[Rfam]
RNA sequence: GAGAGUAGGCGUAGGCGGUUGCAGAUCAGUUAACACUGGUUUGAGGAAAGUCCGGACUCCCGAAAGACCAGACUUGCUGGAUAACGUCCAGUGCGAGCGAUCGUGAGGAUAGUGCCACAGAAAGAUACCGCCAAAAUGAGGCAACAGGUGACAGGUGACAGGUGACAGGUGACAGUAAAAUUCCUGUAACCUUUAACCUGUAACCUGCAACCUCUCAUGGUAAGGGUGCAAAGGUGCGGUAAGAGCGCACCAGCAACGUCGAGAGGCGUUGGCUCGGUAAACCCCGGUCGGGAGCAAGGCCAGAGGAACUACGGUUGGUCUUUUACCAGUUCCGCCAUAAUAGAGCCGCAAGAGGCGUUUGGUAACAAACGUCCCAGAUAGAUAACCGCCCUCAUGUAGAGUAAUCUACAUAGAGAACAGAACCCGGCUUACUACCAACUCUCUCCU
Numbered sequence: 001g002a003g004a005g006u007a008g009g010c011g012u013a014g015g016c017g018g019u020u021g022c023a024g025a026u027c028a029g030u031u032a033a034c035a036c037u038g039g040u041u042u043g044a045g046g047a048a049a050g051u052c053c054g055g056a057c058u059c060c061c062g063a064a065a066g067a068c069c070a071g072a073c074u075u076g077c078u079g080g081a082u083a084a085c086g087u088c089c090a091g092u093g094c095g096a097g098c099g100a101u102c103g104u105g106a107g108g109a110u111a112g113u114g115c116c117a118c119a120g121a122a123a124g125a126u127a128c129c130g131c132c133a134a135a136a137u138g139a140g141g142c143a144a145c146a147g148g149u150g151a152c153a154g155g156u157g158a159c160a161g162g163u164g165a166c167a168g169g170u171g172a173c174a175g176u177a178a179a180a181u182u183c184c185u186g187u188a189a190c191c192u193u194u195a196a197c198c199u200g201u202a203a204c205c206u207g208c209a210a211c212c213u214c215u216c217a218u219g220g221u222a223a224g225g226g227u228g229c230a231a232a233g234g235u236g237c238g239g240u241a242a243g244a245g246c247g248c249a250c251c252a253g254c255a256a257c258g259u260c261g262a263g264a265g266g267c268g269u270u271g272g273c274u275c276g277g278u279a280a281a282c283c284c285c286g287g288u289c290g291g292g293a294g295c296a297a298g299g300c301c302a303g304a305g306g307a308a309c310u311a312c313g314g315u316u317g318g319u320c321u322u323u324u325a326c327c328a329g330u331u332c333c334g335c336c337a338u339a340a341u342a343g344a345g346c347c348g349c350a351a352g353a354g355g356c357g358u359u360u361g362g363u364a365a366c367a368a369a370c371g372u373c374c375c376a377g378a379u380a381g382a383u384a385a386c387c388g389c390c391c392u393c394a395u396g397u398a399g400a401g402u403a404a405u406c407u408a409c410a411u412a413g414a415g416a417a418c419a420g421a422a423c424c425c426g427g428c429u430u431a432c433u434a435c436c437a438a439c440u441c442u443c444u445c446c447u
Stems, first nucleotide, its partner, number of pairs: 001443006008436002011432001014390007022043009048430003052427004057294004066322002071289003075286002077091005092106001093104004107284002112282002114278003128225002130221003136218005233251006253273001254271007298347003301343001305332003313327003317323001354373008